[Rfam]
RNA: ctRNA
RNA sequence: UAGUAAGUUGCUCCUUUGUGAGUGAUUUUAAGUAGGCAUAGAGAAAGUCAUUUCGCGGUGAAUUUUUUCUAUGCUUUUAUUAUAACA
Numbered sequence: 001u002a003g004u005a006a007g008u009u010g011c012u013c014c015u016u017u018g019u020g021a022g023u024g025a026u027u028u029u030a031a032g033u034a035g036g037c038a039u040a041g042a043g044a045a046a047g048u049c050a051u052u053u054c055g056c057g058g059u060g061a062a063u064u065u066u067u068u069c070u071a072u073g074c075u076u077u078u079a080u081u082a083u084a085a086c087a
Base pairs, nucleotide, nucleotide: 005028006027007026008025009024010023011022012021013020034076035075036074037073038072039071040070041069042068043067044066045065046064